c-di-GMP-II-GAG riboswitch aptamer: an 85-nucleotide RNA sequence.
For this family Rfam cites "Bioinformatic analysis of riboswitch structures uncovers variant classes with altered ligand specificity" (Weinberg et al., Proc Natl Acad Sci U S A, 2017).
The base pairs follow the family's consensus structure, which is taken from published work.
Its family is annotated with cyclic-di-GMP binding and regulation of gene expression in the Gene Ontology.

RNA sequence: AGGAGGACGGGAGGCUUUGACGCGCGGCCCAGACCCUGGUUCGCCAGGACCGCGCCGAGCCACUGGCGAGACCGACCCGUUAUCG
Numbered sequence: 001a002g003g004a005g006g007a008c009g010g011g012a013g014g015c016u017u018u019g020a021c022g023c024g025c026g027g028c029c030c031a032g033a034c035c036c037u038g039g040u041u042c043g044c045c046a047g048g049a050c051c052g053c054g055c056c057g058a059g060c061c062a063c064u065g066g067c068g069a070g071a072c073c074g075a076c077c078c079g080u081u082a083u084c085g
Base pairs, nucleotide, nucleotide: 003084004083006081007080008079009078010077011076013061014060015059022055023054024053025052026051027050029048039073041069042068043067044066045065